The family of this 75-nucleotide sequence from Hippolais icterina is "Small nucleolar RNA SNORD47".
A reference for the family is Galardi et al. (2002), "Purified box C/D snoRNPs are able to reproduce site-specific 2'-O-methylation of target RNA in vitro", Mol Cell Biol.

RNA sequence: AGCCACUGAUGAAAUUGAUUCUGCCAAAUGAGUUACUGUGAUAUUACCCUUUUCGUUCCUUUUUCAACUGAGGUU
Numbered sequence: 001a002g003c004c005a006c007u008g009a010u011g012a013a014a015u016u017g018a019u020u021c022u023g024c025c026a027a028a029u030g031a032g033u034u035a036c037u038g039u040g041a042u043a044u045u046a047c048c049c050u051u052u053u054c055g056u057u058c059c060u061u062u063u064u065c066a067a068c069u070g071a072g073g074u075u
Base pairs, nucleotide, nucleotide: 001075002074003073004072